Rfam assigns this 558-nucleotide part of an RNA from Shuttleworthella satelles to the family "Bacterial small subunit ribosomal RNA". The source organism's lineage runs through Bacteria, Bacillota, Clostridia, Shuttleworthella and Shuttleworthella satelles. The family is grouped with related families in Rfam's "SSU clan".
[Rfam]
RNA sequence: UAACAUGAGAGUUCGAUCCUGGCUCAGGAUGAACGCUGGCGGCGUGCUUAACACAUGCAAGUCGAACGAGAAAUGAUAUUACGAUCUCUUCGGAGUGACGGUUUUAUUUCGAGUGGCGGACGGGUGAGUAACGCGUGAGCAACCUGCCCUAUACCGGGGGAUACCAGUUGGAAACGACUGUUAAUACCGCAUAAGCGCACGAUAAGACAUCUUGUUGUGUGAAAAACUCCGGUGGUAUAGGAUGGGCUCGCGUAUGAUUAGCCAGUUGGCGGGGUAAAGGCCCACCAAAGCGACGAUCAUUAGCCGACCUGAGAGGGCGACCGGCCACAUUGGGACUGAGACACGGCCCAAACUCCUACGGGAGGCAGCAGUGGGGAAUAUUGCACAAUGGGCGAAAGCCUGAUGCAGCGACGCCGCGUGAGUGAGGAAGUAUUUCGGUAUGUAAAGCUCUAUCAGCAGGGAAGAAAGAAAUGACGGUACCUGAGUAAGAAGCUCCGGCUAAAUACGUGCCAGCAGCCGCGGUAAUACGUAUGGAGCAAGCGUUAUCCGGAUUUACUG
Numbered sequence: 001u002a003a004c005a006u007g008a009g010a011g012u013u014c015g016a017u018c019c020u021g022g023c024u025c026a027g028g029a030u031g032a033a034c035g036c037u038g039g040c041g042g043c044g045u046g047c048u049u050a051a052c053a054c055a056u057g058c059a060a061g062u063c064g065a066a067c068g069a070g071a072a073a074u075g076a077u078a079u080u081a082c083g084a085u086c087u088c089u090u091c092g093g094a095g096u097g098a099c100g101g102u103u104u105u106a107u108u109u110c111g112a113g114u115g116g117c118g119g120a121c122g123g124g125u126g127a128g129u130a131a132c133g134c135g136u137g138a139g140c141a142a143c144c145u146g147c148c149c150u151a152u153a154c155c156g157g158g159g160g161a162u163a164c165c166a167g168u169u170g171g172a173a174a175c176g177a178c179u180g181u182u183a184a185u186a187c188c189g190c191a192u193a194a195g196c197g198c199a200c201g202a203u204a205a206g207a208c209a210u211c212u213u214g215u216u217g218u219g220u221g222a223a224a225a226a227c228u229c230c231g232g233u234g235g236u237a238u239a240g241g242a243u244g245g246g247c248u249c250g251c252g253u254a255u256g257a258u259u260a261g262c263c264a265g266u267u268g269g270c271g272g273g274g275u276a277a278a279g280g281c282c283c284a285c286c287a288a289a290g291c292g293a294c295g296a297u298c299a300u301u302a303g304c305c306g307a308c309c310u311g312a313g314a315g316g317g318c319g320a321c322c323g324g325c326c327a328c329a330u331u332g333g334g335a336c337u338g339a340g341a342c343a344c345g346g347c348c349c350a351a352a353c354u355c356c357u358a359c360g361g362g363a364g365g366c367a368g369c370a371g372u373g374g375g376g377a378a379u380a381u382u383g384c385a386c387a388a389u390g391g392g393c394g395a396a397a398g399c400c401u402g403a404u405g406c407a408g409c410g411a412c413g414c415c416g417c418g419u420g421a422g423u424g425a426g427g428a429a430g431u432a433u434u435u436c437g438g439u440a441u442g443u444a445a446a447g448c449u450c451u452a453u454c455a456g457c458a459g460g461g462a463a464g465a466a467a468g469a470a471a472u473g474a475c476g477g478u479a480c481c482u483g484a485g486u487a488a489g490a491a492g493c494u495c496c497g498g499c500u501a502a503a504u505a506c507g508u509g510c511c512a513g514c515a516g517c518c519g520c521g522g523u524a525a526u527a528c529g530u531a532u533g534g535a536g537c538a539a540g541c542g543u544u545a546u547c548c549g550g551a552u553u554u555a556c557u558g
Stems, first nucleotide, its partner, number of pairs: 009025005027548004032544006039417006045410002047375001052373003056370003061117003066114002070109003124328003133253008143245002148241007156190001158188002165180006196221007204213003226233002254300003261291002266288004271283003303325004308317003330351005353364004381407001383406003389402005420450004430441004454489001457483004464475001492537005503532005513520002